[Rfam]
RNA: Exoribonuclease-resistant RNA (xrRNA) plant-infecting virus (class 3)
RNA sequence: AAACUAGCCAAGCAUUCACGAGUUGCAAGCAUUGGAAGUUAAGUCUCGUAC
Numbered sequence: 001a002a003a004c005u006a007g008c009c010a011a012g013c014a015u016u017c018a019c020g021a022g023u024u025g026c027a028a029g030c031a032u033u034g035g036a037a038g039u040u041a042a043g044u045c046u047c048g049u050a051c
Stems, first nucleotide, its partner, number of pairs: 001040002008035002011033001012030002018049005